[Rfam]
RNA sequence: ACUGUACUGGACCUGCCAGCACCACAGGUGUGGCUGUGCUGCUGUGCCUGUAACAUCAGGGCAAAGAGAAAGUGGCUAUUUCUACGCUCAGUGUUCAGAAACCAGUGAGCACUAAGAAUGGUUUAUAGCCUGACAUUU
Number, nucleotide and partner (000 for none) at each position: 001a000002c000003u063004g062005u061006a000007c059008u058009g057010g056011a000012c000013c000014u000015g000016c000017c000018a000019g000020c000021a000022c000023c000024a051025c050026a049027g048028g000029u000030g000031u000032g000033g000034c000035u000036g000037u000038g000039c000040u000041g000042c000043u000044g000045u000046g000047c000048c027049u026050g025051u024052a000053a000054c000055a000056u010057c009058a008059g007060g000061g005062c004063a003064a000065a000066g000067a000068g000069a000070a000071a000072g000073u000074g130075g129076c128077u000078a000079u000080u000081u000082c121083u120084a119085c000086g000087c116088u115089c000090a000091g000092u111093g110094u109095u108096c107097a106098g000099a000100a000101a000102c000103c000104a000105g000106u097107g096108a095109g094110c093111a092112c000113u000114a000115a088116g087117a000118a000119u084120g083121g082122u000123u000124u000125a000126u000127a000128g076129c075130c074131u000132g000133a000134c000135a000136u000137u000138u000
This 138-nucleotide sequence from Otolemur garnettii belongs to the Rfam family "Small nucleolar RNA SNORA43". Clan: SNORA17 clan. Taxonomically the source falls in Otolemur (Eukaryota, Metazoa, Eumetazoa, Gnathostomata). Rfam's curators write: ACA43 is a member of the H/ACA class of snoRNA that guide the sites of modification of uridines to pseudouridines. Rfam's curators put it in the seed alignment.